Archaeal large subunit ribosomal RNA: a 260-nucleotide part of an RNA from Methanoregula boonei.
RNA sequence: GAGUUUAUUCUGUUGGCGAAGGUUAACCCACAAGGGGAGCCAUAGGGAAACCAACAAGUCCGUAGCAGCAAUGCGUGGGACGGCGUAUUAAAAGUGCGUGGAGUCAGCAGGAUAAGACCCGAAGCCGAGUGAUCUAUGCGUUGGCAGGUUGAAGCGUGACGAAAGUUGCGUGGAGGACCGCAAGCCGUAUUGAUAUGCAAAUCAUUGGUGUGACCUACGUAUAGGAGUGAAAGAUUAAUCGAACCCGGCAUCAGCUGGUU
Numbered sequence: 001g002a003g004u005u006u007a008u009u010c011u012g013u014u015g016g017c018g019a020a021g022g023u024u025a026a027c028c029c030a031c032a033a034g035g036g037g038a039g040c041c042a043u044a045g046g047g048a049a050a051c052c053a054a055c056a057a058g059u060c061c062g063u064a065g066c067a068g069c070a071a072u073g074c075g076u077g078g079g080a081c082g083g084c085g086u087a088u089u090a091a092a093a094g095u096g097c098g099u100g101g102a103g104u105c106a107g108c109a110g111g112a113u114a115a116g117a118c119c120c121g122a123a124g125c126c127g128a129g130u131g132a133u134c135u136a137u138g139c140g141u142u143g144g145c146a147g148g149u150u151g152a153a154g155c156g157u158g159a160c161g162a163a164a165g166u167u168g169c170g171u172g173g174a175g176g177a178c179c180g181c182a183a184g185c186c187g188u189a190u191u192g193a194u195a196u197g198c199a200a201a202u203c204a205u206u207g208g209u210g211u212g213a214c215c216u217a218c219g220u221a222u223a224g225g226a227g228u229g230a231a232a233g234a235u236u237a238a239u240c241g242a243a244c245c246c247g248g249c250a251u252c253a254g255c256u257g258g259u260u
Base pairs, nucleotide, nucleotide: 005115006114007113008112009111010110011109012108013107014106015105016104017103021041022040023039024038027035028034045052046051058081059080060079061078065074066073067072084098085097086096087095118258119257121255125248126247127246129244130243134224135223136222137221138220139219140218141217143215144214145212147179148178149177150176154171155170156169157168158167159166160165184209185208186207187206189205190204192203193202226236227235228234
The source organism's lineage runs through Archaea, Methanobacteriati, Methanobacteriota, Methanomicrobia and Methanoregula boonei.